[Rfam]
RNA sequence: GGGCUGGCUUUAGCCUAGCAGUUACUUCGAGUCUGGCUUUCCAACCGCCGGGGCCGAUUGGUCCAGUGGUUCGACACCUACCGGUGCUCUCCAGUCCUUAA
Numbered sequence: 001g002g003g004c005u006g007g008c009u010u011u012a013g014c015c016u017a018g019c020a021g022u023u024a025c026u027u028c029g030a031g032u033c034u035g036g037c038u039u040u041c042c043a044a045c046c047g048c049c050g051g052g053g054c055c056g057a058u059u060g061g062u063c064c065a066g067u068g069g070u071u072c073g074a075c076a077c078c079u080a081c082c083g084g085u086g087c088u089c090u091c092c093a094g095u096c097c098u099u100a101a
Stems, first nucleotide, its partner, number of pairs: 002096006013085003018081001020079002027074004